[Rfam]
RNA: mir-8834 microRNA precursor family
RNA sequence: AGGAGGAACAACCACAAUGGUGGCGGCCAGCUCUGGAUUCCUGGAUUCAGCUCAGGCAGUAACUACCUAGCUCUCAGUCUGCAGGGGCCUGGAUGCUCCCAGGACGG
Numbered sequence: 001a002g003g004a005g006g007a008a009c010a011a012c013c014a015c016a017a018u019g020g021u022g023g024c025g026g027c028c029a030g031c032u033c034u035g036g037a038u039u040c041c042u043g044g045a046u047u048c049a050g051c052u053c054a055g056g057c058a059g060u061a062a063c064u065a066c067c068u069a070g071c072u073c074u075c076a077g078u079c080u081g082c083a084g085g086g087g088c089c090u091g092g093a094u095g096c097u098c099c100c101a102g103g104a105c106g107g
Base pairs, nucleotide, nucleotide: 002099003098004097005096007094009091010090012087013086019079020078021077023075025074026073029072030071031070032069035066037064041059042058043057